The record is a 78-nucleotide RNA sequence from Stagnimonas aquatica, which matches "SAH (S-adenosyl-L-homocysteine) riboswitch aptamer" in Rfam.
The base pairs follow the family's consensus structure, which is taken from published work.
A search with the family's covariance model found it, with a score of 52 bits.
[Rfam]
Nucleotides: 078
Stems, first nucleotide, its partner, number of pairs: 002049002005046004021036005
Number, partner (000 for none) and nucleotide at each position: 001000g002049c003048c004000c005046g006045c007044g008043a009000g010000g011000g012000g013000c014000g015000c016000u017000g018000c019000g020000a021036c022035c023034g024033u025032c026000g027000a028000u029000g030000a031000g032025g033024g034023c035022g036021g037000c038000c039000a040000g041000g042000c043008u044007c045006g046005c047000c048003g049002g050000c051000a052000c053000u054000g055000a056000c057000a058000c059000c060000g061000c062000a063000a064000c065000g066000g067000c068000g069000c070000c071000c072000g073000u074000u075000c076000c077000a078000a